[Rfam]
RNA sequence: CAAUAAUAUUUUUUGCUAUUCCCAGUCAAUAACACAAUGACACAUGAGAUAACUUUUUCACGUGUCAUUGUGUUAUUGGUUGGGGGAUAGCAAAACAAUACUAUCC
Numbered sequence: 001c002a003a004u005a006a007u008a009u010u011u012u013u014u015g016c017u018a019u020u021c022c023c024a025g026u027c028a029a030u031a032a033c034a035c036a037a038u039g040a041c042a043c044a045u046g047a048g049a050u051a052a053c054u055u056u057u058u059c060a061c062g063u064g065u066c067a068u069u070g071u072g073u074u075a076u077u078g079g080u081u082g083g084g085g086g087a088u089a090g091c092a093a094a095a096c097a098a099u100a101c102u103a104u105c106c
Base pairs, nucleotide, nucleotide: 003104004103005102011095012094013093014092015091016090017089018088019087021084022083023082024081025080026079027078028077029076030075031074032073033072034071035070036069037068038067039066040065041064042063043062045060046059047058048057049056
Rfam assigns this 106-nucleotide RNA sequence from Prunus dulcis to the family "MIR6274 microRNA precursor family".